[Rfam]
A member of the RNA family "c-di-AMP riboswitch aptamer (ydaO/yuaA leader)" from Solirubrobacter pauli, 142 nucleotides long. Rfam 15.1 lists 7,607 matches to the family in 2,262 species. From the family's description: This family represents a conserved RNA structure found upstream of the ydaO and yuaA genes in Bacillus subtilis and related genes in other bacteria. The ydaO/yuaA element is thought to act as a genetic 'off' switch for the ydaO and yuaA genes in its native state. It is believed that the element may be triggered during osmotic shock leading to activation of ydaO, a predicted amino acid transporter gene, and members of the yuaA-yubG operon which code for KtrA and KtrB K+ transporters.
RNA sequence: UUGCCGCGUACGCCGAGUCCCCGGUUGGUCGCCGGGGAGCGGGGGACCCAAGUAGUUGGGGCGAGUCGCGCGCAAGCGUGAGACGCAGGCUCUUUCAGCGUCAGCCCGUCAGCUAACCCCGCAGGCCGACGAAAGAGGAACA
Numbered sequence: 001u002u003g004c005c006g007c008g009u010a011c012g013c014c015g016a017g018u019c020c021c022c023g024g025u026u027g028g029u030c031g032c033c034g035g036g037g038a039g040c041g042g043g044g045g046a047c048c049c050a051a052g053u054a055g056u057u058g059g060g061g062c063g064a065g066u067c068g069c070g071c072g073c074a075a076g077c078g079u080g081a082g083a084c085g086c087a088g089g090c091u092c093u094u095u096c097a098g099c100g101u102c103a104g105c106c107c108g109u110c111a112g113c114u115a116a117c118c119c120c121g122c123a124g125g126c127c128g129a130c131g132a133a134a135g136a137g138g139a140a141c142a
Stems, first nucleotide, its partner, number of pairs: 012126003018038008039122006049058002059107003067080004083101004